[Rfam]
RNA sequence: CGCCUUGCAUUCGCAGGGCCGACGCCCUACUUCUCGGGUGUCUCGCUUGCGGGACUAUGGUGAUAAACGCGCGUGUAAUAAGCGGAUCGGACCCGGGGGCGGUACCCGGCGGCUCCACCAACCUCCCCACCGGGGGACCAUGGGGCCGAAACAGUAUCGACGGACGUCUAACGACGUUGCUUUCACUCGGUGAGGUACCACCGUUAUCGGUCCGAACAGUAUAGUUGCAAAUGACAACCAUGCUCCGGUGGCCGUUGCCGCGUAAGCGGUAGCCAAACCGAAAUCUAAGUCUCGGCGCCUAGCAGCGUCGUGCGGGGUUCGCAGGCACCUGGCAACAGAAGCCUGCACU
Numbered sequence: 001c002g003c004c005u006u007g008c009a010u011u012c013g014c015a016g017g018g019c020c021g022a023c024g025c026c027c028u029a030c031u032u033c034u035c036g037g038g039u040g041u042c043u044c045g046c047u048u049g050c051g052g053g054a055c056u057a058u059g060g061u062g063a064u065a066a067a068c069g070c071g072c073g074u075g076u077a078a079u080a081a082g083c084g085g086a087u088c089g090g091a092c093c094c095g096g097g098g099g100c101g102g103u104a105c106c107c108g109g110c111g112g113c114u115c116c117a118c119c120a121a122c123c124u125c126c127c128c129a130c131c132g133g134g135g136g137a138c139c140a141u142g143g144g145g146c147c148g149a150a151a152c153a154g155u156a157u158c159g160a161c162g163g164a165c166g167u168c169u170a171a172c173g174a175c176g177u178u179g180c181u182u183u184c185a186c187u188c189g190g191u192g193a194g195g196u197a198c199c200a201c202c203g204u205u206a207u208c209g210g211u212c213c214g215a216a217c218a219g220u221a222u223a224g225u226u227g228c229a230a231a232u233g234a235c236a237a238c239c240a241u242g243c244u245c246c247g248g249u250g251g252c253c254g255u256u257g258c259c260g261c262g263u264a265a266g267c268g269g270u271a272g273c274c275a276a277a278c279c280g281a282a283a284u285c286u287a288a289g290u291c292u293c294g295g296c297g298c299c300u301a302g303c304a305g306c307g308u309c310g311u312g313c314g315g316g317g318u319u320c321g322c323a324g325g326c327a328c329c330u331g332g333c334a335a336c337a338g339a340a341g342c343c344u345g346c347a348c349u
Stems, first nucleotide, its partner, number of pairs: 040055005059187005069180002071177004083166002087163003093109005110148007188203004194213002197211003315330004321346006
RNA: Alphaproteobacteria transfer-messenger RNA